[Rfam]
RNA sequence: GGAGGGACGUCUCAUCCGGUGAUGGGCGCGGGCUUCAAACCCGUAGGAUCGUUGAGAAACGAUUGGCAGGUUCGACUCCUGUGUCCCUCC
Numbered sequence: 001g002g003a004g005g006g007a008c009g010u011c012u013c014a015u016c017c018g019g020u021g022a023u024g025g026g027c028g029c030g031g032g033c034u035u036c037a038a039a040c041c042c043g044u045a046g047g048a049u050c051g052u053u054g055a056g057a058a059a060c061g062a063u064u065g066g067c068a069g070g071u072u073c074g075a076c077u078c079c080u081g082u083g084u085c086c087c088u089c090c
Base pairs, nucleotide, nucleotide: 001090002089003088004087005086006085007084008083009082011026012025013024014023015022016021028044029043030042031041032040047064048063049062050061051060067081068080069079070078